RNA sequence: GCACGUUCUCAGGGCGGGGUGCGAUUCCCCACCGGCGGUAAUGGCGCCUGCAGCAUGAAGCGCCUAGCCCGCGAGCGCUUGCAGGCGGUUCGCUGCAAGGUCAGCAGACCCGGUGCGAUUCCGGGGCCGACGGUAUAGUCCGGAUGGAAGAGAACGGGA
Numbered sequence: 001g002c003a004c005g006u007u008c009u010c011a012g013g014g015c016g017g018g019g020u021g022c023g024a025u026u027c028c029c030c031a032c033c034g035g036c037g038g039u040a041a042u043g044g045c046g047c048c049u050g051c052a053g054c055a056u057g058a059a060g061c062g063c064c065u066a067g068c069c070c071g072c073g074a075g076c077g078c079u080u081g082c083a084g085g086c087g088g089u090u091c092g093c094u095g096c097a098a099g100g101u102c103a104g105c106a107g108a109c110c111c112g113g114u115g116c117g118a119u120u121c122c123g124g125g126g127c128c129g130a131c132g133g134u135a136u137a138g139u140c141c142g143g144a145u146g147g148a149a150g151a152g153a154a155c156g157g158g159a
Base pairs, nucleotide, nucleotide: 004156005155006154007153008152009151010150017029018028019027031139032138033129034128035072036071037070038069067127068126075105076104109125110124111123112122113121131142132141133140
Dot-bracket structure: ...(((((((......(((.......))).[[((((((............................[[))))..((...........................))...(((((.......)))))]])).(((....]]))).......)))))))...

This 159-nucleotide sequence from Oxalobacteraceae bacterium OM1 belongs to the Rfam family "FMN riboswitch aptamer (RFN element)".
Taxonomically the source falls in Oxalobacteraceae (Bacteria, Pseudomonadati, Pseudomonadota, Burkholderiales).
About the family: The RFN element is a highly conserved domain that is found frequently in the 5'-untranslated regions of prokaryotic mRNAs that encode for flavin mononucleotide (FMN) biosynthesis and transport proteins.